[Rfam]
RNA: small nucleolar RNA snoR135
Organism: Oryza meyeriana
RNA sequence: CCUGCAGGAUAGUGUGUAUCGGCCUAAUGCCCUUGUGCUAUGCAUUUCUGCCGAAAGUGUUUCCUGCUAUAUCAACUAGAGGAAAGUGGGCAGUUGGGUUAAACUUAUGGUUCUUGUUUUCUCCAACAAUCAUUUUCCUCCCAUUA
Numbered sequence: 001c002c003u004g005c006a007g008g009a010u011a012g013u014g015u016g017u018a019u020c021g022g023c024c025u026a027a028u029g030c031c032c033u034u035g036u037g038c039u040a041u042g043c044a045u046u047u048c049u050g051c052c053g054a055a056a057g058u059g060u061u062u063c064c065u066g067c068u069a070u071a072u073c074a075a076c077u078a079g080a081g082g083a084a085a086g087u088g089g090g091c092a093g094u095u096g097g098g099u100u101a102a103a104c105u106u107a108u109g110g111u112u113c114u115u116g117u118u119u120u121c122u123c124c125a126a127c128a129a130u131c132a133u134u135u136u137c138c139u140c141c142c143a144u145u146a
Base pairs, nucleotide, nucleotide: 004067005066006065007064008063009061014045015044016043017042018041019040079140080139081138082137083136084135085134086133087132088131089130093127094126095125096124